[Rfam]
Nucleotides: 048
Base pairs, nucleotide, nucleotide: 002019003018005016006015007014008013035048036047037046038045039044
Number, partner (000 for none) and nucleotide at each position: 001000c002019g003018g004000u005016g006015a007014g008013g009000a010000c011000g012000a013008c014007c015006u016005c017000c018003c019002c020000c021000u022000u023000c024000g025000g026000g027000c028000a029000u030000u031000c032000a033000u034000u035048c036047c037046g038045g039044g040000a041000c042000g043000a044039c045038c046037c047036g048035g
This 48-nucleotide sequence from Thioclava indica belongs to the Rfam family "Guanidine-II riboswitch aptamer (mini-ykkC)". The base pairs follow the family's consensus structure, which is taken from published work. The source organism's lineage runs through Bacteria, Pseudomonadota, Alphaproteobacteria, Rhodobacterales and Thioclava. Rfam describes the family as follows. Simpler in structure and has fewer highly conserved nucleotide positions than the ykkC-yxkD leader.